RNA sequence: UGGUGAAGAUGAUGAAUAAAGGACAAGUGAUGAUCAAAAUUUCACAUGAUCAUAAUUAGUUCCUUGCUGCGUUCUUUCUGAUUCACUC
Numbered sequence: 001u002g003g004u005g006a007a008g009a010u011g012a013u014g015a016a017u018a019a020a021g022g023a024c025a026a027g028u029g030a031u032g033a034u035c036a037a038a039a040u041u042u043c044a045c046a047u048g049a050u051c052a053u054a055a056u057u058a059g060u061u062c063c064u065u066g067c068u069g070c071g072u073u074c075u076u077u078c079u080g081a082u083u084c085a086c087u088c
Stems, first nucleotide, its partner, number of pairs: 004085004
Annotation: A member of the RNA family "Small nucleolar RNA R32/R81/Z41" from Ricinus communis, 88 nucleotides long. The base pairs follow the family's consensus structure, which was predicted with PFOLD. The match comes from Rfam's covariance-model search (46 bits). Rfam links the family to the GO terms nucleolus and RNA processing.